[Rfam]
RNA sequence: UGCACACUCAUUGGGGAGUAGCCGCUUUUCGCAAGAAUUGGCUCACGUCAACAUACUUGACCACACACUGGUCAUGGCGUGAGCGGUAACACCGCUUGGCAAGACCUUUGAUCACUGUGCUUCCGCAUUGGCUGGGGACGCACGUGGUCAAUCGUUUUAAACCGGCCUCGGAAUUU
Numbered sequence: 001u002g003c004a005c006a007c008u009c010a011u012u013g014g015g016g017a018g019u020a021g022c023c024g025c026u027u028u029u030c031g032c033a034a035g036a037a038u039u040g041g042c043u044c045a046c047g048u049c050a051a052c053a054u055a056c057u058u059g060a061c062c063a064c065a066c067a068c069u070g071g072u073c074a075u076g077g078c079g080u081g082a083g084c085g086g087u088a089a090c091a092c093c094g095c096u097u098g099g100c101a102a103g104a105c106c107u108u109u110g111a112u113c114a115c116u117g118u119g120c121u122u123c124c125g126c127a128u129u130g131g132c133u134g135g136g137g138a139c140g141c142a143c144g145u146g147g148u149c150a151a152u153c154g155u156u157u158u159a160a161a162c163c164g165g166c167c168u169c170g171g172a173a174u175u176u
Stems, first nucleotide, its partner, number of pairs: 026037001041084010058074005085175003090170001
RNA: Manganese Mn2+ riboswitch aptamer (yybP-ykoY)